RNA sequence: GAAGCGGUGGCUCAAUGGUAGAGCUUUCGACUCCAAAUCGAAGGGUUGCAGGUUCAAUUCCUGUCCGUUUCA
Numbered sequence: 001g002a003a004g005c006g007g008u009g010g011c012u013c014a015a016u017g018g019u020a021g022a023g024c025u026u027u028c029g030a031c032u033c034c035a036a037a038u039c040g041a042a043g044g045g046u047u048g049c050a051g052g053u054u055c056a057a058u059u060c061c062u063g064u065c066c067g068u069u070u071c072a
Base pairs, nucleotide, nucleotide: 001071002070003069004068005067006066007065010024011023012022013021026042027041028040029039030038048064049063050062051061052060
The record is a 72-nucleotide sequence from Saccharomyces cerevisiae, which matches "tRNA" in Rfam.
NCBI's taxonomy places the organism under Eukaryota, Opisthokonta, Fungi, Ascomycota, Saccharomyces.
It is one of the family's seed sequences.
Rfam describes the family as follows. Transfer RNA (tRNA) molecules are approximately 80 nucleotides in length.